[Rfam]
A member of the RNA family "mir-9256 microRNA precursor family" from Pipistrellus kuhlii, 67 nucleotides long. Pairs were carried over by alignment from the consensus structure, which was predicted with RNAalifold. Taxonomically the source falls in Pipistrellus (Eukaryota, Deuterostomia, Euteleostomi, Mammalia). Gene Ontology terms of the family: RISC complex and miRNA-mediated post-transcriptional gene silencing.
RNA sequence: CACUACACUGAGUGGCCAGAUUAUUAUGUGCUCUGAGCACAUAAUAAUCUGGCCACUCAGUAUAUAU
Numbered sequence: 001c002a003c004u005a006c007a008c009u010g011a012g013u014g015g016c017c018a019g020a021u022u023a024u025u026a027u028g029u030g031c032u033c034u035g036a037g038c039a040c041a042u043a044a045u046a047a048u049c050u051g052g053c054c055a056c057u058c059a060g061u062a063u064a065u066a067u
Stems, first nucleotide, its partner, number of pairs: 004064002007061011019049010